[Rfam]
RNA sequence: AACCCCCCGUGCGGCGGCAUCUCGCUGAAUCCCCCAGGGCCGGAAGGCAGCAAGGGCAGGUGAGCUCUGUCGGGUGCACGGGGGGCCUUU
Number, nucleotide and partner (000 for none) at each position: 001a089002a088003c000004c000005c085006c082007c081008c080009g079010u078011g077012c074013g000014g000015c072016g071017g070018c069019a068020u000021c064022u063023c062024g061025c060026u059027g000028a000029a000030u000031c056032c055033c054034c000035c000036a000037g000038g000039g048040c047041c046042g000043g000044a000045a000046g041047g040048c039049a000050g000051c000052a000053a000054g033055g032056g031057c000058a000059g026060g025061u024062g023063a022064g021065c000066u000067c000068u019069g018070u017071c016072g015073g000074g012075u000076g000077c011078a010079c009080g008081g007082g006083g000084g000085g005086c000087c000088u002089u001090u000
RNA: Bacterial small signal recognition particle RNA
Organism: Nocardioides jejuensis